[Rfam]
RNA sequence: GGGGCUGAUCGGAUUCGACUACGUGCGCCGAGGCAGGGGAAGCGUGCCGGUGCAGGCCAGAGACCACCGUAUAAGCGUCGCGGCAACCAAUUAAGCGCCGAUAAGAAUCAGCGCGACUACGCCCUCGCUGCCUAAGCAGCCAGGCUAGUCUGUCGGCCCGAGGGUGCUCUCACCUCGGCCCCCGGCAUCAUCUUCGGGAGCUCACCGUCUCCGCCGGUCGCGGGUGGGGACGGGACAACUCACAGCGACUGGGAUCGUCAUCUCGGCUUGUUCGCGUGACUGAGAGAUCCGAGUAGAGACACAGCGGACUGCGCACGGAGAAGCCCUGCCGACUCGACGGAGGACCCGGGUUCAAUUCCCGGCAGCUCCACGA
Numbered sequence: 001g002g003g004g005c006u007g008a009u010c011g012g013a014u015u016c017g018a019c020u021a022c023g024u025g026c027g028c029c030g031a032g033g034c035a036g037g038g039g040a041a042g043c044g045u046g047c048c049g050g051u052g053c054a055g056g057c058c059a060g061a062g063a064c065c066a067c068c069g070u071a072u073a074a075g076c077g078u079c080g081c082g083g084c085a086a087c088c089a090a091u092u093a094a095g096c097g098c099c100g101a102u103a104a105g106a107a108u109c110a111g112c113g114c115g116a117c118u119a120c121g122c123c124c125u126c127g128c129u130g131c132c133u134a135a136g137c138a139g140c141c142a143g144g145c146u147a148g149u150c151u152g153u154c155g156g157c158c159c160g161a162g163g164g165u166g167c168u169c170u171c172a173c174c175u176c177g178g179c180c181c182c183c184g185g186c187a188u189c190a191u192c193u194u195c196g197g198g199a200g201c202u203c204a205c206c207g208u209c210u211c212c213g214c215c216g217g218u219c220g221c222g223g224g225u226g227g228g229g230a231c232g233g234g235a236c237a238a239c240u241c242a243c244a245g246c247g248a249c250u251g252g253g254a255u256c257g258u259c260a261u262c263u264c265g266g267c268u269u270g271u272u273c274g275c276g277u278g279a280c281u282g283a284g285a286g287a288u289c290c291g292a293g294u295a296g297a298g299a300c301a302c303a304g305c306g307g308a309c310u311g312c313g314c315a316c317g318g319a320g321a322a323g324c325c326c327u328g329c330c331g332a333c334u335c336g337a338c339g340g341a342g343g344a345c346c347c348g349g350g351u352u353c354a355a356u357u358c359c360c361g362g363c364a365g366c367u368c369c370a371c372g373a
Base pairs, nucleotide, nucleotide: 001369002368003367004366005365006364007363019342020341022339023338024337027334032330033329034328035327036326037325038324043317044316045315046314047313048069049068050067051066052065056084057083058082123144124143125142127140128139129138130137131136151187152186153185154184155183156182158178159177160176162173166201167200168199169198170197171196205233206232207231208230209229210228211227212226213225216250217249218248219247220246221245252290253289254288255287256286258285259284261282265280267278270309271308272307273306346362347361348360349359350358